RNA sequence: UAAAAAGAGGGAGUGCAGAGGGGCCCGCCCUCUGCCGUUAAGGAGGAUGCUCAGGCCGCUUGGCGGCCGCCGAAGGGAAC
Dot-bracket structure: ..............((((((((.....))))))))..................(((((.....)))))............
This 80-nucleotide RNA sequence from Sinanaerobacter chloroacetimidivorans belongs to the Rfam family "Clostridiales-2 RNA". NCBI's taxonomy places the organism under Bacteria, Bacillati, Bacillota, Peptostreptococcales, Sinanaerobacter. It is annotated as a small RNA. Rfam 15.1 lists 285 matches to the family in 26 species. The family's consensus secondary structure is taken from published work.